[Rfam]
RNA: int-alpA RNA
RNA sequence: CCAGCAUCUAGCCCGACGGGGCGAAAAGCGGAUACCUUCAACCGCCUGAUGCUGGAUUCUUCUUUGAGGG
Numbered sequence: 001c002c003a004g005c006a007u008c009u010a011g012c013c014c015g016a017c018g019g020g021g022c023g024a025a026a027a028g029c030g031g032a033u034a035c036c037u038u039c040a041a042c043c044g045c046c047u048g049a050u051g052c053u054g055g056a057u058u059c060u061u062c063u064u065u066g067a068g069g070g
Stems, first nucleotide, its partner, number of pairs: 001055008011022004028045004035070006